Rfam assigns this 183-nucleotide RNA sequence from Desulfovibrio sp. 6_1_46AFAA to the family "6S / SsrS RNA". E. coli 6S RNA was the first non coding RNA to be sequenced, but its function was unknown until recently. For this family Rfam cites "6S RNA regulates E. coli RNA polymerase activity" (Wassarman and Storz, Cell, 2000). The base pairs follow the family's consensus structure, which is taken from published work. The match comes from Rfam's covariance-model search (87 bits). By type it is a non-coding RNA gene.
[Rfam]
RNA sequence: AUUUCCCUGGGGUGUGCGUGAUUUAUGCCUCGGUGCUAACCUGACAAGCAUAAAAAUGGGUGCCGUCUCUGCUUUUUGUGUGCAUGCCCGCGUUACGCGGGAAGCCUGAGAAAAGCAUACGGGUGCCCGACCUGGGAAACCAGGUUCUGCACCGCAGACAUGACACGGCGCUCUGGGGAUUAC
Numbered sequence: 001a002u003u004u005c006c007c008u009g010g011g012g013u014g015u016g017c018g019u020g021a022u023u024u025a026u027g028c029c030u031c032g033g034u035g036c037u038a039a040c041c042u043g044a045c046a047a048g049c050a051u052a053a054a055a056a057u058g059g060g061u062g063c064c065g066u067c068u069c070u071g072c073u074u075u076u077u078g079u080g081u082g083c084a085u086g087c088c089c090g091c092g093u094u095a096c097g098c099g100g101g102a103a104g105c106c107u108g109a110g111a112a113a114a115g116c117a118u119a120c121g122g123g124u125g126c127c128c129g130a131c132c133u134g135g136g137a138a139a140c141c142a143g144g145u146u147c148u149g150c151a152c153c154g155c156a157g158a159c160a161u162g163a164c165a166c167g168g169c170g171c172u173c174u175g176g177g178g179a180u181u182a183c
Base pairs, nucleotide, nucleotide: 004179005178006177007176008175009174010173011172012171013170014169015168017167018166019165033152034151035150036149039146041144042143058128059127060126062124063123064122070117071116072115073114074113075112076111082105083104087101088100089099090098091097